PyrR binding site: a 155-nucleotide RNA sequence from Virgibacillus pantothenticus.
Rfam links the family to the GO terms pyrimidine nucleobase transport and pyrimidine nucleobase biosynthetic process.
The family has 41 seed sequences and 1,498 matches in Rfam 15.1.
Pairs were carried over by alignment from the consensus structure, which is taken from published work.
It scores 61 bits against the family's covariance model.

RNA sequence: GGUACCUUUAAUUCAGUCCUGUGAGGCUGACAAGGAAACGGAUAAGUUGAUGGAAUUAUUGUAUAAGCGAAUACAACCUAUGCGGGUGUAUAGCUAGCAAUGAAUCUAUUUAACGAGAAAGGCUUCUUGUCACAUUUGGCAGGAAGCUUUUUACU
Numbered sequence: 001g002g003u004a005c006c007u008u009u010a011a012u013u014c015a016g017u018c019c020u021g022u023g024a025g026g027c028u029g030a031c032a033a034g035g036a037a038a039c040g041g042a043u044a045a046g047u048u049g050a051u052g053g054a055a056u057u058a059u060u061g062u063a064u065a066a067g068c069g070a071a072u073a074c075a076a077c078c079u080a081u082g083c084g085g086g087u088g089u090a091u092a093g094c095u096a097g098c099a100a101u102g103a104a105u106c107u108a109u110u111u112a113a114c115g116a117g118a119a120a121g122g123c124u125u126c127u128u129g130u131c132a133c134a135u136u137u138g139g140c141a142g143g144a145a146g147c148u149u150u151u152u153a154c155u
Base pairs, nucleotide, nucleotide: 003037005035006034007033008032013030014029015028016027017026018025049110050109051108052107053106054105056103057102058101059100060099061098062097119150120149121148122147123146124145125144126143127142128141129140130139131138132137